Bacterial RNase P class A: a 314-nucleotide sequence from Maribacter sp. MMG018. The family's consensus secondary structure is taken from published work.
RNA sequence: UUAGCAGGCCACCUUAUCGCUUAAUGCUAACAAGUUUAGUGUUCAGAGGAAAGUCCGGACACCAUAGUGCAGUAUAGCGGGUAACGCCCGUCCGUCGAGAGACGAGGACCAGUGCAACAGAAAGCAAGUACAGUUCGGCUGUAGUGAAAUCAGGUAAACUCUAUACGGUGAAACGUCAUGUAAAUCGGUGUUUGAGGGUUGCACGCCCGAGCCGAAGGGUAGGCGGUUGGAAUCUUUGGGCAACCUUAGAUCUAGAUAAAUGAUAAGGGCCCGUUUUUACGGGAACAGAAUCCGGCUUAUGGCCUGCUUUUUAU
Numbered sequence: 001u002u003a004g005c006a007g008g009c010c011a012c013c014u015u016a017u018c019g020c021u022u023a024a025u026g027c028u029a030a031c032a033a034g035u036u037u038a039g040u041g042u043u044c045a046g047a048g049g050a051a052a053g054u055c056c057g058g059a060c061a062c063c064a065u066a067g068u069g070c071a072g073u074a075u076a077g078c079g080g081g082u083a084a085c086g087c088c089c090g091u092c093c094g095u096c097g098a099g100a101g102a103c104g105a106g107g108a109c110c111a112g113u114g115c116a117a118c119a120g121a122a123a124g125c126a127a128g129u130a131c132a133g134u135u136c137g138g139c140u141g142u143a144g145u146g147a148a149a150u151c152a153g154g155u156a157a158a159c160u161c162u163a164u165a166c167g168g169u170g171a172a173a174c175g176u177c178a179u180g181u182a183a184a185u186c187g188g189u190g191u192u193u194g195a196g197g198g199u200u201g202c203a204c205g206c207c208c209g210a211g212c213c214g215a216a217g218g219g220u221a222g223g224c225g226g227u228u229g230g231a232a233u234c235u236u237u238g239g240g241c242a243a244c245c246u247u248a249g250a251u252c253u254a255g256a257u258a259a260a261u262g263a264u265a266a267g268g269g270c271c272c273g274u275u276u277u278u279a280c281g282g283g284a285a286c287a288g289a290a291u292c293c294g295g296c297u298u299a300u301g302g303c304c305u306g307c308u309u310u311u312u313a314u
Stems, first nucleotide, its partner, number of pairs: 003308009012268007020046002023043006051298003055295005060170004067204004072166005077091005092106001093104004107161002112159002114155002129143006174225004185215005196208004232251004238245002

The family's RNA type in Rfam is ribozyme. Lineage of the source: Bacteria > Flavobacteriia > Flavobacteriales > Flavobacteriaceae > Maribacter. The match comes from Rfam's covariance-model search (204 bits). Rfam links the family to the GO terms ribonuclease P activity, tRNA processing and dimeric ribonuclease P complex.